[Rfam]
RNA: Ribosomal S15 leader
Organism: Catenovulum agarivorans
RNA sequence: UAGGUUCGCUGGCUUAGUGAUCGGCGCACCCGAAUUUUGGAGAUGAUUAUGUCACUAACUCUUGAAGAAAAAGCAAAAGUUGUUGCUGAAUAUGCAACAAAAGAA
Numbered sequence: 001u002a003g004g005u006u007c008g009c010u011g012g013c014u015u016a017g018u019g020a021u022c023g024g025c026g027c028a029c030c031c032g033a034a035u036u037u038u039g040g041a042g043a044u045g046a047u048u049a050u051g052u053c054a055c056u057a058a059c060u061c062u063u064g065a066a067g068a069a070a071a072a073g074c075a076a077a078a079g080u081u082g083u084u085g086c087u088g089a090a091u092a093u094g095c096a097a098c099a100a101a102a103g104a105a
Stems, first nucleotide, its partner, number of pairs: 007026006037058004042053001